[Rfam]
RNA sequence: GACGCGACUGGCGCGGUCAAGGUGGAGCGAACCACCGGGGAGCGAAGGACAUCCGGACACCGCGCGCCUGGGUGUACCGG
Numbered sequence: 001g002a003c004g005c006g007a008c009u010g011g012c013g014c015g016g017u018c019a020a021g022g023u024g025g026a027g028c029g030a031a032c033c034a035c036c037g038g039g040g041a042g043c044g045a046a047g048g049a050c051a052u053c054c055g056g057a058c059a060c061c062g063c064g065c066g067c068c069u070g071g072g073u074g075u076a077c078c079g080g
Stems, first nucleotide, its partner, number of pairs: 003044003008039002010068005022035004057075005
ZMP/ZTP riboswitch aptamer (pfl RNA motif): an 80-nucleotide RNA from Actinomadura viridilutea. Its family is annotated with regulation of purine nucleotide biosynthetic process and one-carbon metabolic process in the Gene Ontology.